[Rfam]
RNA sequence: AACUUAUCAAGAGAGGUGGAGGGACUUGGCCCUUUGAAGCCUCAGCAACAGAUAAUAAUUUAAUUAUUAUACUGUGCUAAUUCCAGAAGCAUGUGCUUGAAGAUAAGAA
Numbered sequence: 001a002a003c004u005u006a007u008c009a010a011g012a013g014a015g016g017u018g019g020a021g022g023g024a025c026u027u028g029g030c031c032c033u034u035u036g037a038a039g040c041c042u043c044a045g046c047a048a049c050a051g052a053u054a055a056u057a058a059u060u061u062a063a064u065u066a067u068u069a070u071a072c073u074g075u076g077c078u079a080a081u082u083c084c085a086g087a088a089g090c091a092u093g094u095g096c097u098u099g100a101a102g103a104u105a106a107g108a109a
Stems, first nucleotide, its partner, number of pairs: 003107006013043005021032003026086004044078004049074002052070006082101001087098004
Notes: Rfam assigns this 109-nucleotide sequence from Saliterribacillus persicus to the family "SAM riboswitch aptamer (S box leader)". Its Rfam clan is "SAM clan". A search with the family's covariance model found it, with a score of 83 bits.